RNA sequence: AGUGUUGAUAGAGGUGCGGGUUUCAAGAGUAACAGCCGGGAGAAGGAUGAGCUUCUGCGAAAGGCUGCGAAAGGGGAAAUCGCCGAAGCAAAACAAGGCUCAAUACUUGUUUUGCUGGUCUGACAUUGAAUAAAUGGCAGAUUGUCAGGAUGAAAAUUCUGGAGAGCUAUCUCACUG
Numbered sequence: 001a002g003u004g005u006u007g008a009u010a011g012a013g014g015u016g017c018g019g020g021u022u023u024c025a026a027g028a029g030u031a032a033c034a035g036c037c038g039g040g041a042g043a044a045g046g047a048u049g050a051g052c053u054u055c056u057g058c059g060a061a062a063g064g065c066u067g068c069g070a071a072a073g074g075g076g077a078a079a080u081c082g083c084c085g086a087a088g089c090a091a092a093a094c095a096a097g098g099c100u101c102a103a104u105a106c107u108u109g110u111u112u113u114g115c116u117g118g119u120c121u122g123a124c125a126u127u128g129a130a131u132a133a134a135u136g137g138c139a140g141a142u143u144g145u146c147a148g149g150a151u152g153a154a155a156a157u158u159c160u161g162g163a164g165a166g167c168u169a170u171c172u173c174a175c176u177g
Base pairs, nucleotide, nucleotide: 007171008170009169010168011167016083017082018081019080021078022077023076024075033067034066035065036064037063087116088115089114090113091112092111093110094109095108096107097106117143118142119141120140121139122138124136125135126134127133145162146161147160148159149158150157151156

Shown here is a 177-nucleotide RNA sequence from Bacillus sp. MUM 13, a member of the family "Lysine riboswitch aptamer". Its family is annotated with lysine biosynthetic process in the Gene Ontology. Rfam's curators write: Riboswitches are metabolite binding domains within certain messenger RNAs that serve as precision sensors for their corresponding targets. Allosteric rearrangement of mRNA structure is mediated by ligand binding, and this results in modulation of gene expression. This family includes riboswitches that sense lysine in a number of genes involved in lysine metabolism, including lysC. The match comes from Rfam's covariance-model search (121 bits).